RNA sequence: AAGGUGGGUAUGAAAUGACACACACGUACUAUAACGAUACGUCGGGGUGCCUAUGAAAAUAGGUCGAUGUUGAGGGUGCGUGGAGGCCUAAC
Numbered sequence: 001a002a003g004g005u006g007g008g009u010a011u012g013a014a015a016u017g018a019c020a021c022a023c024a025c026g027u028a029c030u031a032u033a034a035c036g037a038u039a040c041g042u043c044g045g046g047g048u049g050c051c052u053a054u055g056a057a058a059a060u061a062g063g064u065c066g067a068u069g070u071u072g073a074g075g076g077u078g079c080g081u082g083g084a085g086g087c088c089u090a091a092c
Stems, first nucleotide, its partner, number of pairs: 023082008037071001039070006049064005